[Rfam]
A member of the RNA family "Plastid-psbA-3 3UTR RNA" from Cynara cardunculus, 57 nucleotides long. Clan: Plastid-psbA 3UTR RNA clan. Lineage of the source: Eukaryota > Streptophytina > Pentapetalae > asterids > Cynara cardunculus subsp. cardunculus. Plastid psbA-3 is a non-coding RNA (ncRNA) present in plastids. It was identified in inverted repeat sequences in the 3 prime untranslate region (3UTR) of photosystem II quinone-binding protein (psbA).

Nucleotides: 057
Base pairs, nucleotide, nucleotide: 001053003051004050005049006048008046009045010044011043012042018035019034020033021032022031023030
Number, partner (000 for none) and nucleotide at each position: 001053a002000c003051a004050g005049g006048a007000a008046c009045a010044a011043u012042a013000a014000c015000u016000c017000c018035c019034u020033c021032u022031u023030g024000a025000u026000a027000a028000a029000a030023c031022a032021a033020g034019a035018g036000c037000g038000a039000a040000a041000c042012u043011a044010u045009u046008g047000c048006u049005c050004c051003u052000u053001u054000u055000u056000u057000a